This 97-nucleotide RNA from Mediterraneibacter gnavus belongs to the Rfam family "Purine riboswitch aptamer". A search with the family's covariance model found it, with a score of 56 bits. Taxonomically the source falls in Mediterraneibacter gnavus (Bacteria, Bacillati, Bacillota, Mediterraneibacter).
[Rfam]
RNA sequence: CGAAUUGCAUAAAAUGGUGCUUAUAUAGGUUCAUAAUUGGUUGGACGUAUCUACCAGCUGCCGCAAACAGCUGACUAUAAGCAGAGUGGGAUGGGAA
Numbered sequence: 001c002g003a004a005u006u007g008c009a010u011a012a013a014a015u016g017g018u019g020c021u022u023a024u025a026u027a028g029g030u031u032c033a034u035a036a037u038u039g040g041u042u043g044g045a046c047g048u049a050u051c052u053a054c055c056a057g058c059u060g061c062c063g064c065a066a067a068c069a070g071c072u073g074a075c076u077a078u079a080a081g082c083a084g085a086g087u088g089g090g091a092u093g094g095g096a097a
Stems, first nucleotide, its partner, number of pairs: 018083008029046005055073006